[Rfam]
RNA sequence: GGUGCACCGACGCCAGAAACUGCGUGUUAAUAGUCUUUCCCGUUUGGCCCGGGAAGACGGUUAGUGAAUC
Numbered sequence: 001g002g003u004g005c006a007c008c009g010a011c012g013c014c015a016g017a018a019a020c021u022g023c024g025u026g027u028u029a030a031u032a033g034u035c036u037u038u039c040c041c042g043u044u045u046g047g048c049c050c051g052g053g054a055a056g057a058c059g060g061u062u063a064g065u066g067a068a069u070c
Base pairs, nucleotide, nucleotide: 001011003009027064028063029062030061031060033058034057035056037055038054039053040052041051042050